[Rfam]
RNA sequence: GGUUGGACAGAUGUUUAUGUAUUUGAUGUCUGUUUUCAAGAAUUGUUGCUUUUAGGGUGGAGGCU
Number, nucleotide and partner (000 for none) at each position: 001g000002g000003u039004u038005g037006g034007a033008c032009a031010g030011a029012u028013g027014u026015u025016u000017a000018u000019g000020u000021a000022u000023u000024u000025g015026a014027u013028g012029u011030c010031u009032g008033u007034u006035u000036u000037c005038a004039a003040g000041a000042a000043u000044u000045g000046u000047u000048g064049c063050u062051u061052u000053u060054a000055g000056g000057g000058u000059g000060g053061a051062g050063g049064c048065u000
Na+ riboswitch aptamer (DUF1646): a 65-nucleotide RNA sequence from Lacrimispora algidixylanolytica. It scores 42 bits against the family's covariance model.